The record is a 71-nucleotide sequence from Oryzias latipes, which matches "mir-139 microRNA precursor family" in Rfam. The family's consensus secondary structure was predicted with RNAalifold. The organism belongs to Oryzias, within Eukaryota.

RNA sequence: CUGUAUUCUACAGUGCAUGUGUCUCCAGUAUGUUAGUGAUGCUACUGGAGACUCGGCUCUGUUGGAAUAAC
Numbered sequence: 001c002u003g004u005a006u007u008c009u010a011c012a013g014u015g016c017a018u019g020u021g022u023c024u025c026c027a028g029u030a031u032g033u034u035a036g037u038g039a040u041g042c043u044a045c046u047g048g049a050g051a052c053u054c055g056g057c058u059c060u061g062u063u064g065g066a067a068u069a070a071c
Stems, first nucleotide, its partner, number of pairs: 006067004010062004015057002018055002021052009